[Rfam]
RNA sequence: UUCAUAUCAGGAGUAUGGCGAGAGCACUGGCUUUAUGACCCAUCAGCAACCCUUAGAGAUAAGUAGGUGCUAAAUCCAGCCAAUAGUGGAAACACUAUGUGGAAAGAUAAGAU
Numbered sequence: 001u002u003c004a005u006a007u008c009a010g011g012a013g014u015a016u017g018g019c020g021a022g023a024g025c026a027c028u029g030g031c032u033u034u035a036u037g038a039c040c041c042a043u044c045a046g047c048a049a050c051c052c053u054u055a056g057a058g059a060u061a062a063g064u065a066g067g068u069g070c071u072a073a074a075u076c077c078a079g080c081c082a083a084u085a086g087u088g089g090a091a092a093c094a095c096u097a098u099g100u101g102g103a104a105a106g107a108u109a110a111g112a113u
Stems, first nucleotide, its partner, number of pairs: 002112002005109004013044001015043004022033003027079004045071004050067002052063004075105001080102003
Dot-bracket structure: .((.((((....(.((((...(((..[[[[)))......)))))((((.((((((....))))..))))))...(]]]](((.................)))..))))).)).
Background:
Rfam assigns this 113-nucleotide RNA sequence from a Candidatus Nomurabacteria bacterium to the family "SAM riboswitch aptamer (S box leader)". Rfam links the family to the GO term regulation of gene expression.